RNA sequence: UACCCCCUGCGUGACUGGCGAUACGGCCUUUCGGGGUCAAGGUGGAGCAUCCCACCGUGAAGCGUAGGGCGUCGCUUUUGCCGUUCGCCUGGGCAGCCGUU
Numbered sequence: 001u002a003c004c005c006c007c008u009g010c011g012u013g014a015c016u017g018g019c020g021a022u023a024c025g026g027c028c029u030u031u032c033g034g035g036g037u038c039a040a041g042g043u044g045g046a047g048c049a050u051c052c053c054a055c056c057g058u059g060a061a062g063c064g065u066a067g068g069g070c071g072u073c074g075c076u077u078u079u080g081c082c083g084u085u086c087g088c089c090u091g092g093g094c095a096g097c098c099g100u101u
Base pairs, nucleotide, nucleotide: 003071005069006068007067008066009065010064011063012062015059017089018088019087020086021085042055043054044053045052078096079095080094081093082092

A member of the RNA family "ZMP/ZTP riboswitch aptamer (pfl RNA motif)" from Burkholderia humptydooensis, 101 nucleotides long. It is one of the family's seed sequences.